[Rfam]
RNA sequence: AAAUCAAAUGAGGAAUUUGGGUUUUAGAUUUCUCACGAUGGUCAUCUGAGACAAUUUACUAUUGUCGAAGCUGAUUCCAUAAUUCAAUGCUUCUGAUGAUU
Numbered sequence: 001a002a003a004u005c006a007a008a009u010g011a012g013g014a015a016u017u018u019g020g021g022u023u024u025u026a027g028a029u030u031u032c033u034c035a036c037g038a039u040g041g042u043c044a045u046c047u048g049a050g051a052c053a054a055u056u057u058a059c060u061a062u063u064g065u066c067g068a069a070g071c072u073g074a075u076u077c078c079a080u081a082a083u084u085c086a087a088u089g090c091u092u093c094u095g096a097u098g099a100u101u
Stems, first nucleotide, its partner, number of pairs: 001101002004098001052064003
RNA: Small nucleolar RNA Z161/Z228